[Rfam]
RNA: Small nucleolar RNA snoR100
RNA sequence: CAAUGAGAGAAGCAUGGUAACGUGCACAGAAAUUGAAUUGGGUCUUUAAGCCUGCCCUCUCUGAUGCCAUUUGGCUUUGAUUGAGGGGCAUGGUUUUGCAGUAAAAUA
Numbered sequence: 001c002a003a004u005g006a007g008a009g010a011a012g013c014a015u016g017g018u019a020a021c022g023u024g025c026a027c028a029g030a031a032a033u034u035g036a037a038u039u040g041g042g043u044c045u046u047u048a049a050g051c052c053u054g055c056c057c058u059c060u061c062u063g064a065u066g067c068c069a070u071u072u073g074g075c076u077u078u079g080a081u082u083g084a085g086g087g088g089c090a091u092g093g094u095u096u097u098g099c100a101g102u103a104a105a106a107u108a
Base pairs, nucleotide, nucleotide: 012025013024014023015022040091042089043088044087050081052079054075055074056073